[Rfam]
RNA sequence: AAGCAGUUCUCUGUAGCAGACUAUUAAAACUGUCACAGUUUGGGCUUGUUAUAGCAAGGAAGUCUAACCUAGUCUGGUAUUGUCUCCUCUGUGAGACAAGCCAUUAUACAGAUCUAAACAGU
Numbered sequence: 001a002a003g004c005a006g007u008u009c010u011c012u013g014u015a016g017c018a019g020a021c022u023a024u025u026a027a028a029a030c031u032g033u034c035a036c037a038g039u040u041u042g043g044g045c046u047u048g049u050u051a052u053a054g055c056a057a058g059g060a061a062g063u064c065u066a067a068c069c070u071a072g073u074c075u076g077g078u079a080u081u082g083u084c085u086c087c088u089c090u091g092u093g094a095g096a097c098a099a100g101c102c103a104u105u106a107u108a109c110a111g112a113u114c115u116a117a118a119c120a121g122u
Stems, first nucleotide, its partner, number of pairs: 009044003012037003017032003060115001062113004070108002075103004083096004
A member of the RNA family "Small nucleolar RNA SNORA28" from Oryctolagus cuniculus, 122 nucleotides long.
Its Rfam clan is "SNORA28 clan".
For this family Rfam cites "RNomics: an experimental approach that identifies 201 candidates for novel, small, non-messenger RNAs in mouse" (Huttenhofer et al., EMBO J, 2001).
Rfam classes the family as an H/ACA-box small nucleolar RNA.
Rfam 15.1 lists 922 matches to the family in 535 species.
From the family's description: ACA28 is a member of the H/ACA class of snoRNA that guide the sites of modification of uridines to pseudouridines.